[Rfam]
RNA: Group II catalytic intron D1-D4-1
RNA sequence: CUACCGACACCGUGAGGUGUCGGGAUGGGCGAACAGGAGUCAGCAGAGGCCAUAUUAGGCUCUCUAACCAAGAGCUGAAGGGC
Numbered sequence: 001c002u003a004c005c006g007a008c009a010c011c012g013u014g015a016g017g018u019g020u021c022g023g024g025a026u027g028g029g030c031g032a033a034c035a036g037g038a039g040u041c042a043g044c045a046g047a048g049g050c051c052a053u054a055u056u057a058g059g060c061u062c063u064c065u066a067a068c069c070a071a072g073a074g075c076u077g078a079a080g081g082g083c
Stems, first nucleotide, its partner, number of pairs: 001027001004023008040047002049083003058076006